[Rfam]
RNA: Streptococcus sRNA SpF59 (ldcC RNA)
RNA sequence: AGACCCUUUCCUUUGCGGAAAUAAGGCCGGACGGACAGCCGGGGUCGAAUGCCGA
Dot-bracket structure: .((((.(((((.....))))).....................)))).........